[Rfam]
RNA: Purine riboswitch aptamer
Organism: Marinomonas sp. MED121
RNA sequence: AAGUUACCGCUUAAGCCCUCUCGUAUAACCCCACUAAUAUGGUUUGGGGGUCUCUACCAGGAACCGAUAAUUUCUGAUUACGAAGAGUAUUGCGUUAUGC
Numbered sequence: 001a002a003g004u005u006a007c008c009g010c011u012u013a014a015g016c017c018c019u020c021u022c023g024u025a026u027a028a029c030c031c032c033a034c035u036a037a038u039a040u041g042g043u044u045u046g047g048g049g050g051u052c053u054c055u056a057c058c059a060g061g062a063a064c065c066g067a068u069a070a071u072u073u074c075u076g077a078u079u080a081c082g083a084a085g086a087g088u089a090u091u092g093c094g095u096u097a098u099g100c
Stems, first nucleotide, its partner, number of pairs: 019085001021083005029049005058076006